[Rfam]
The family of this 135-nucleotide RNA from Tepidiforma thermophila is "c-di-AMP riboswitch aptamer (ydaO/yuaA leader)".
It scores 92 bits against the family's covariance model.
This family represents a conserved RNA structure found upstream of the ydaO and yuaA genes in Bacillus subtilis and related genes in other bacteria.

RNA sequence: UACUGUGCGAAGCCGAAUCUCCGCCCACGCGGAGAGCGGGGGACCCAACGCACGGGGUGAAUCGCGCGCAGGCGCGUAGGCAACUCCCAAUGCCGAACCCGUCAGCUAACCUCGCAGGCUCUUGGGAGAGACGCG
Numbered sequence: 001u002a003c004u005g006u007g008c009g010a011a012g013c014c015g016a017a018u019c020u021c022c023g024c025c026c027a028c029g030c031g032g033a034g035a036g037c038g039g040g041g042g043a044c045c046c047a048a049c050g051c052a053c054g055g056g057g058u059g060a061a062u063c064g065c066g067c068g069c070a071g072g073c074g075c076g077u078a079g080g081c082a083a084c085u086c087c088c089a090a091u092g093c094c095g096a097a098c099c100c101g102u103c104a105g106c107u108a109a110c111c112u113c114g115c116a117g118g119c120u121c122u123u124g125g126g127a128g129a130g131a132c133g134c135g
Stems, first nucleotide, its partner, number of pairs: 011120004018035007036115006046054001055100003063076004079094004